[Rfam]
RNA sequence: UUGGCAAUGAUGAUUGGCGCAGGGGUACGUACCUCAGCCGAUAAUGGGGGCUGAGUGUUGGUGCUGGUUCUCAGUUAGUGGGCAUGUGGCCGGCUGACAGGGUGGGUGCCAACACGAUACAGACGCCUAAAUCUGAGCCAC
Numbered sequence: 001u002u003g004g005c006a007a008u009g010a011u012g013a014u015u016g017g018c019g020c021a022g023g024g025g026u027a028c029g030u031a032c033c034u035c036a037g038c039c040g041a042u043a044a045u046g047g048g049g050g051c052u053g054a055g056u057g058u059u060g061g062u063g064c065u066g067g068u069u070c071u072c073a074g075u076u077a078g079u080g081g082g083c084a085u086g087u088g089g090c091c092g093g094c095u096g097a098c099a100g101g102g103u104g105g106g107u108g109c110c111a112a113c114a115c116g117a118u119a120c121a122g123a124c125g126c127c128u129a130a131a132u133c134u135g136a137g138c139c140a141c
Base pairs, nucleotide, nucleotide: 002140003139004138005137
RNA: Small nucleolar RNA SNORD94